[Rfam]
RNA: small nucleolar RNA snoR126
Organism: Helianthus annuus
RNA sequence: GGGCGAUGAUGAUAAAAACAUUUCUCGAUUCUGAUCAAAAAACAAUUGGAAUUUGAUAUUGGGUUAGUUAAAACAUCCAAUUUCUUCUUACCAACUGUAACUUGAUGACCGAAUUUGUGCGUGUCUGAGCCUC
Numbered sequence: 001g002g003g004c005g006a007u008g009a010u011g012a013u014a015a016a017a018a019c020a021u022u023u024c025u026c027g028a029u030u031c032u033g034a035u036c037a038a039a040a041a042a043c044a045a046u047u048g049g050a051a052u053u054u055g056a057u058a059u060u061g062g063g064u065u066a067g068u069u070a071a072a073a074c075a076u077c078c079a080a081u082u083u084c085u086u087c088u089u090a091c092c093a094a095c096u097g098u099a100a101c102u103u104g105a106u107g108a109c110c111g112a113a114u115u116u117g118u119g120c121g122u123g124u125c126u127g128a129g130c131c132u133c
Base pairs, nucleotide, nucleotide: 001132002131003130004129